[Rfam]
L31-Actinobacteria ribosomal protein leader: a 47-nucleotide RNA sequence from Streptantibioticus cattleyicolor.
The family's consensus secondary structure is taken from published work.
Rfam's curators put it in the seed alignment.

RNA sequence: UCGGCCCCGGUUCACGUCCGGCAAUCCCGCUCGGUCGACCCGGUGCC
Numbered sequence: 001u002c003g004g005c006c007c008c009g010g011u012u013c014a015c016g017u018c019c020g021g022c023a024a025u026c027c028c029g030c031u032c033g034g035u036c037g038a039c040c041c042g043g044u045g046c047c
Stems, first nucleotide, its partner, number of pairs: 003047003007043004015037002018034003021030002